[Rfam]
RNA: mir-203 microRNA precursor family
RNA sequence: UCCUCUCUGGCUCAGUGGUUCUCAACAGUUCAACAGUAGUGACACAACGUUUGUGAAAUGUUUAGGACCACUGGACCCGAG
Numbered sequence: 001u002c003c004u005c006u007c008u009g010g011c012u013c014a015g016u017g018g019u020u021c022u023c024a025a026c027a028g029u030u031c032a033a034c035a036g037u038a039g040u041g042a043c044a045c046a047a048c049g050u051u052u053g054u055g056a057a058a059u060g061u062u063u064a065g066g067a068c069c070a071c072u073g074g075a076c077c078c079g080a081g
Base pairs, nucleotide, nucleotide: 014072015071016070017069018068019067021065022064024062025061026060027059029057030056031055032054